[Rfam]
RNA sequence: CAGGGAAGCCGGGUAAUCGCUUCGUGCUUUGGCACGGGGAGGAAAGUCCGGACACCUACAAGCUCCGCGCUCCCCGAUUCGGCAUUGGCCGGCGAAGGGGAGGCUUGCCGGGAGGAAUCCCGGGAUGCCAGACAGUGCAACAGAAAACAGACCGCCCGGCUAUGGCCGGGGUAAGGGUGAAAAGGUGAGGUAAGAGCUCACCGCCCCAAGGGCGACCAAGGGGGCACGGUAAACCUCGCGGGGUGCAAGUUCAUGCAGAUGGUAUACGCCGCUUGUCGUGACCCCAUCGGGUAGAACGCGCAGAUAAAUGAUUACCCUCGACAAAAUCCGGCUUACAGGCUUCCCUGCAUC
Dot-bracket structure: ((((((((((((((((((.((((((((....))))))))....[[[.[[[[[((((....[...((((((((((...................................)))))(.(((....)))..)((...((((.............(((((((((....))).))))..)).......((((((.......))))))(((((..((....))..)))).)...))..)))))))))))))...((((.....(((((.....(.(((...].))).).))))).....))))............)))))))..........]]]]]]]].).))))))))))....
RNA: Bacterial RNase P class A
Organism: Gracilimonas mengyeensis